[Rfam]
RNA sequence: CCCUUGGAGAGAUCCUGCACAUGAUGUGCGAUGGACGCCGAAGGCGAAAGAACCGUUGAAUAUACAACGGUUUGAAACGCUCAGGCAAAAGGACAGGGG
Numbered sequence: 001c002c003c004u005u006g007g008a009g010a011g012a013u014c015c016u017g018c019a020c021a022u023g024a025u026g027u028g029c030g031a032u033g034g035a036c037g038c039c040g041a042a043g044g045c046g047a048a049a050g051a052a053c054c055g056u057u058g059a060a061u062a063u064a065c066a067a068c069g070g071u072u073u074g075a076a077a078c079g080c081u082c083a084g085g086c087a088a089a090a091g092g093a094c095a096g097g098g099g
Stems, first nucleotide, its partner, number of pairs: 001099006013035003037086003040082002044080003050073009

Annotation: The family of this 99-nucleotide RNA from [Actinobacillus] rossii is "Glycine riboswitch aptamer". Lineage of the source: Bacteria > Pseudomonadati > Pseudomonadota > Pasteurellales > [Pasteurella] aerogenes-[Pasteurella] mairii-[Actinobacillus] rossii complex.